[Rfam]
RNA sequence: UUGCACAGUGAACACCCAAGUGUGCUUUAUAGUCCCCUUGGCUUUGACUCUGUGCUAGAACAAUGUCUGUCCUUUUCCUCUGCAUUGAAAGGCAUGUUCGCUUUUAAAUGUAUUCAAAAGGUCAGCACAGUU
Dot-bracket structure: ..((((((.(..((.(((((.(.(((....))).).)))))...))..))))))).((.(((.....))).)).....(.(((((((((((.........))))).))))....)).)..............
RNA: Small nucleolar RNA SNORA22
Organism: Chrysochloris asiatica